[Rfam]
RNA: Metazoan signal recognition particle RNA
RNA sequence: ACCGGCUCGUAAGAGCUACAACCAGCAAUGGGGUAGUGGCGUGUGAAAAUCUCAUACCUGUGCGUGACCCACUUAGACAUGCCGAUAGAAUGCCCAUUGGGAGACAACGGCUCAUCAUGGUGUGUCCCUGACGGGGCACAUCAUGGUGAUUAAAUUGAGGUGUACCGGCGGAGGCUGUAACCAGAACACGUUAAAUCUCAAUCGCUGUCGGCCCUUGGAAAGCGUUCUUGAGUGUAGAAGUGGUCAAUCACCGCAAGUGCCGAGAUAUAACACCGCUACUU
Numbered sequence: 001a002c003c004g005g006c007u008c009g010u011a012a013g014a015g016c017u018a019c020a021a022c023c024a025g026c027a028a029u030g031g032g033g034u035a036g037u038g039g040c041g042u043g044u045g046a047a048a049a050u051c052u053c054a055u056a057c058c059u060g061u062g063c064g065u066g067a068c069c070c071a072c073u074u075a076g077a078c079a080u081g082c083c084g085a086u087a088g089a090a091u092g093c094c095c096a097u098u099g100g101g102a103g104a105c106a107a108c109g110g111c112u113c114a115u116c117a118u119g120g121u122g123u124g125u126c127c128c129u130g131a132c133g134g135g136g137c138a139c140a141u142c143a144u145g146g147u148g149a150u151u152a153a154a155u156u157g158a159g160g161u162g163u164a165c166c167g168g169c170g171g172a173g174g175c176u177g178u179a180a181c182c183a184g185a186a187c188a189c190g191u192u193a194a195a196u197c198u199c200a201a202u203c204g205c206u207g208u209c210g211g212c213c214c215u216u217g218g219a220a221a222g223c224g225u226u227c228u229u230g231a232g233u234g235u236a237g238a239a240g241u242g243g244u245c246a247a248u249c250a251c252c253g254c255a256a257g258u259g260c261c262g263a264g265a266u267a268u269a270a271c272a273c274c275g276c277u278a279c280u281u
Stems, first nucleotide, its partner, number of pairs: 001034003004017005022031003036279006042272003047268001049266005055259003059255004065246004070242005077235004082230001087228007094218002099214003103209004108204003113148016149155002156200006167192004175184003